[Rfam]
RNA sequence: UGUCGAAGUUCCAUCUACAAAUGGAUAAGGCUUUUGUCUUAGUGUAUACGAAUAGUUGAAUCAAACAAUGGAGCAAUACCCAAUAUCUUGUUUCAAUUGGGUAUUGCUCCAUUGUU
Number, nucleotide and partner (000 for none) at each position: 001u000002g000003u000004c000005g000006a000007a000008g000009u000010u025011c024012c023013a022014u021015c000016u000017a000018c000019a000020a000021a014022u013023g012024g011025a010026u000027a000028a000029g000030g000031c000032u000033u000034u000035u000036g000037u000038c000039u000040u000041a000042g000043u000044g000045u000046a000047u000048a000049c000050g000051a000052a000053u000054a000055g000056u000057u000058g000059a000060a000061u000062c000063a000064a000065a000066c000067a113068a112069u111070g110071g109072a108073g107074c106075a105076a104077u103078a102079c101080c000081c099082a098083a097084u000085a000086u000087c000088u000089u000090g000091u000092u000093u000094c000095a000096a000097u083098u082099g081100g000101g079102u078103a077104u076105u075106g074107c073108u072109c071110c070111a069112u068113u067114g000115u000116u000
Rfam assigns this 116-nucleotide RNA from Eugeissona tristis to the family "Plastid-psbA-1 3UTR RNA". The literature on the family includes a 2023 paper in Plant Commun by Richter et al., "Retrograde signaling in plants: A critical review focusing on the GUN pathway and beyond". Pairs were carried over by alignment from the consensus structure, which was predicted with LocARNA. It is annotated as a cis-regulatory element. Clan: Plastid-psbA 3UTR RNA clan.